RNA sequence: AUUAAGCUCAGAGCAUCGACCGUGCACGCCAGGCUCCUAUCCACCGAGGAGGCCUGUUCGCUCACUCCACCGCACUCAGCCCGAUCAAGGUAUGGGUAUGGAGCACGGGAUGUUAGGAGCCAU
Numbered sequence: 001a002u003u004a005a006g007c008u009c010a011g012a013g014c015a016u017c018g019a020c021c022g023u024g025c026a027c028g029c030c031a032g033g034c035u036c037c038u039a040u041c042c043a044c045c046g047a048g049g050a051g052g053c054c055u056g057u058u059c060g061c062u063c064a065c066u067c068c069a070c071c072g073c074a075c076u077c078a079g080c081c082c083g084a085u086c087a088a089g090g091u092a093u094g095g096g097u098a099u100g101g102a103g104c105a106c107g108g109g110a111u112g113u114u115a116g117g118a119g120c121c122a123u
Stems, first nucleotide, its partner, number of pairs: 006120004012114006022065003028057002032053001035050004068103001070101002074097004079091002